About this RNA:
The family of this 72-nucleotide sequence is "mir-137 microRNA precursor family". Gene Ontology terms of the family: miRNA-mediated post-transcriptional gene silencing and RISC complex. On this family, see Ruby et al., Genome Res 2007: "Evolution, biogenesis, expression, and target predictions of a substantially expanded set of Drosophila microRNAs".

[Rfam]
RNA sequence: GUUUGCGACGCGUAUUCUUGGGGAAUUAACACACAUUCGCGAUGUUAUUGCUUGAGAAUACACGUAUUUGCC
Numbered sequence: 001g002u003u004u005g006c007g008a009c010g011c012g013u014a015u016u017c018u019u020g021g022g023g024a025a026u027u028a029a030c031a032c033a034c035a036u037u038c039g040c041g042a043u044g045u046u047a048u049u050g051c052u053u054g055a056g057a058a059u060a061c062a063c064g065u066a067u068u069u070g071c072c
Base pairs, nucleotide, nucleotide: 001072003070005068008065009064010063012061013060014059015058016057017056018055019054020053021052022051025049027047028046029045030044031043032041